The family of this 223-nucleotide sequence from Lichenicoccus roseus is "permuted transfer-messenger RNA".
[Rfam]
RNA sequence: GGCGAUAAACGGUGCGUGGAAUAAUCGUUGUGGACCCGGGGGCAGUGCCCGGCGCCUCCACCAACUUCUCUCCGGGACAUGCGAGUGUCCGGGAGAGCAUGGGGGCGACACAGGCUCGACACGCGUGGUAAAGACCCACCUUUUGCCCGGCAUUGUACCGCCGUUAUCGGGCUAAAACACAGGUGCCAACGAUAACUUCGAGGCGCUCGCUGUCGCUGCAUAA
Numbered sequence: 001g002g003c004g005a006u007a008a009a010c011g012g013u014g015c016g017u018g019g020a021a022u023a024a025u026c027g028u029u030g031u032g033g034a035c036c037c038g039g040g041g042g043c044a045g046u047g048c049c050c051g052g053c054g055c056c057u058c059c060a061c062c063a064a065c066u067u068c069u070c071u072c073c074g075g076g077a078c079a080u081g082c083g084a085g086u087g088u089c090c091g092g093g094a095g096a097g098c099a100u101g102g103g104g105g106c107g108a109c110a111c112a113g114g115c116u117c118g119a120c121a122c123g124c125g126u127g128g129u130a131a132a133g134a135c136c137c138a139c140c141u142u143u144u145g146c147c148c149g150g151c152a153u154u155g156u157a158c159c160g161c162c163g164u165u166a167u168c169g170g171g172c173u174a175a176a177a178c179a180c181a182g183g184u185g186c187c188a189a190c191g192a193u194a195a196c197u198u199c200g201a202g203g204c205g206c207u208c209g210c211u212g213u214c215g216c217u218g219c220a221u222a223a
Base pairs, nucleotide, nucleotide: 001147002146003145004144005143014137016135017134026125027124028123030122031121032120036052037051038050039049040048053107054106055105056104057103058102059101148163149162150161151160
The base pairs follow the family's consensus structure, which is taken from published work. By type it is a non-coding RNA gene. Bacterial tmRNA, also known as 10Sa RNA or SsrA, is named for its dual tRNA and mRNA-like properties.